[Rfam]
RNA sequence: GUGUAUCCUGUAUGAAUUAAACCUACAAAUUUCCAAUUAUGAGUUAGGUGCUUUAACUAUUCAGCCAAGGAUGC
Numbered sequence: 001g002u003g004u005a006u007c008c009u010g011u012a013u014g015a016a017u018u019a020a021a022c023c024u025a026c027a028a029a030u031u032u033c034c035a036a037u038u039a040u041g042a043g044u045u046a047g048g049u050g051c052u053u054u055a056a057c058u059a060u061u062c063a064g065c066c067a068a069g070g071a072u073g074c
Stems, first nucleotide, its partner, number of pairs: 003074006010026003014022001040067002043065003047061004
Plastid-ycf2 5UTR RNA: a 74-nucleotide sequence from Trema andersonii. About the family: Plastid ycf2 is a non-coding RNA (ncRNA) recognised in plastids. It was found in the prime untranslated region (5UTR) of ycf2 genes, it presents a tRNA-like motif which suggests it can be involved in mRNA maturation, particularly involved in defining the precise 5' end of the transcript. The family has 204 seed sequences and 3,521 matches in Rfam 15.1. Lineage of the source: Eukaryota > Viridiplantae > Tracheophyta > Mesangiospermae > Trema. For this family Rfam cites "Retrograde signaling in plants: A critical review focusing on the GUN pathway and beyond" (Richter et al., Plant Commun, 2023). A search with the family's covariance model found it, with a score of 70 bits.